[Rfam]
RNA sequence: UUGCAUUUACGGCAGGAGAGGAAUUGAACCUCCGGGGGCAGAGGUUCGAUUCGAGCGGAGCGAGAAAACGUUGCGCCAGCAACGGCCCGCAGGGCGAGUCGCGAAGCGGCGAGUCAUCCUCUAUCACCGACCA
Dot-bracket structure: ..............(.(((((...........((..........(.((...((.......))......((((((....))))))...)).)...)).....................))))).).........
A member of the RNA family "RtT RNA" from Pluralibacter gergoviae, 133 nucleotides long. Gene Ontology term of the family: cellular response to amino acid starvation. This family represents a bacterial cis-regulatory element known as RtT RNA. The exact function of RtT is unknown although it is thought that it may be involved in changing the cellular response in relation to amino acid starvation. Lineage of the source: Bacteria > Pseudomonadati > Pseudomonadota > Enterobacterales > Pluralibacter. A search with the family's covariance model found it, with a score of 93 bits. The family's RNA type in Rfam is cis-regulatory element.